[Rfam]
RNA: TPP riboswitch aptamer (THI element)
Organism: Lutispora thermophila
RNA sequence: UAUGUCCGCUAGGGGAGCUUUUGCUGAGAGUGUGGUUUAAGCCACAGACCCUUGGAACCUGUGUAGUUAAUCCUAACGAAGGGAAGCGGUUUCGGUUAAGU
Numbered sequence: 001u002a003u004g005u006c007c008g009c010u011a012g013g014g015g016a017g018c019u020u021u022u023g024c025u026g027a028g029a030g031u032g033u034g035g036u037u038u039a040a041g042c043c044a045c046a047g048a049c050c051c052u053u054g055g056a057a058c059c060u061g062u063g064u065a066g067u068u069a070a071u072c073c074u075a076a077c078g079a080a081g082g083g084a085a086g087c088g089g090u091u092u093c094g095g096u097u098a099a100g101u
Base pairs, nucleotide, nucleotide: 006089007088008087009086010085011052012051013050014049017024018023031046032045033044034043035042058082059081060080064075065074066073